[Rfam]
RNA: Nitrogen stress-induced RNA 1
RNA sequence: UAGUAGAUGCACCCUGAUCAAUUAUCCUUCGGCUUCGGCUGAGGGAUUUUUUU
Numbered sequence: 001u002a003g004u005a006g007a008u009g010c011a012c013c014c015u016g017a018u019c020a021a022u023u024a025u026c027c028u029u030c031g032g033c034u035u036c037g038g039c040u041g042a043g044g045g046a047u048u049u050u051u052u053u
Stems, first nucleotide, its partner, number of pairs: 003012002026045008